[Rfam]
RNA sequence: CUGACGCCCACGGCCCGGCCGCAAUGCCGGGCCGCU
Numbered sequence: 001c002u003g004a005c006g007c008c009c010a011c012g013g014c015c016c017g018g019c020c021g022c023a024a025u026g027c028c029g030g031g032c033c034g035c036u
Stems, first nucleotide, its partner, number of pairs: 011034009
This 36-nucleotide sequence from Pseudoxanthomonas wuyuanensis belongs to the Rfam family "Caulobacter sRNA CC0196". A reference for the family is Landt et al. (2008), "Small non-coding RNAs in Caulobacter crescentus", Mol Microbiol. The match comes from Rfam's covariance-model search (38 bits). NCBI's taxonomy places the organism under Bacteria, Pseudomonadota, Gammaproteobacteria, Lysobacteraceae, Pseudoxanthomonas.